Notes: The record is a 125-nucleotide RNA from Saccharospirillum salsuginis, which matches "Ribosomal S15 leader" in Rfam. From the family's description: The E. coli Ribosomal S15 gene 5' UTR can form two alternative structures. The family is grouped with related families in Rfam's "Ribosomal Protein S15 Leader clan". By type it is a cis-regulatory leader. Gene Ontology term of the family: regulation of translation, ncRNA-mediated.
RNA sequence: GAAUGCCACUGUUAAUGUGCACGGUGGUCACUCCUUUAUUGAAUGCACAUUCGUGGAGUUAUUCGCCCAUGGCACUCACAGUCGAGCAAAAAGCUGAAAUCGUAAAAGAGUUCGGUACCAACGAA
Numbered sequence: 001g002a003a004u005g006c007c008a009c010u011g012u013u014a015a016u017g018u019g020c021a022c023g024g025u026g027g028u029c030a031c032u033c034c035u036u037u038a039u040u041g042a043a044u045g046c047a048c049a050u051u052c053g054u055g056g057a058g059u060u061a062u063u064c065g066c067c068c069a070u071g072g073c074a075c076u077c078a079c080a081g082u083c084g085a086g087c088a089a090a091a092a093g094c095u096g097a098a099a100u101c102g103u104a105a106a107a108g109a110g111u112u113c114g115g116u117a118c119c120a121a122c123g124a125a
Stems, first nucleotide, its partner, number of pairs: 007026006044078002055076002058073001